[Rfam]
RNA sequence: GUUUCAGACGGACCUUUGGGGAGUUGAAGC
Numbered sequence: 001g002u003u004u005c006a007g008a009c010g011g012a013c014c015u016u017u018g019g020g021g022a023g024u025u026g027a028a029g030c
Base pairs, nucleotide, nucleotide: 011025012024013023015021

The record is a 30-nucleotide RNA from Halorubrum alkaliphilum, which matches "CRISPR RNA direct repeat element" in Rfam. A search with the family's covariance model found it, with a score of 37 bits. The source organism's lineage runs through Archaea, Methanobacteriota, Halobacteria, Halobacteriales and Halorubrum.